[Rfam]
RNA sequence: UUUAAGAAGCAGGAAAAGCCCCUGACCUUGAACCUGGGAUCCUGACCAUGAUCUCUUGGUGAUGCUGUCAGGGGUAGAUUCCUUGUUUA
Dot-bracket structure: ....(((...(((....(((((((((.....(((.((((((........))))))..)))......))))))))).....)))..))).

This 89-nucleotide RNA from Jaculus jaculus belongs to the Rfam family "mir-3070 microRNA precursor family". The base pairs follow the family's consensus structure, which was predicted with RNAalifold.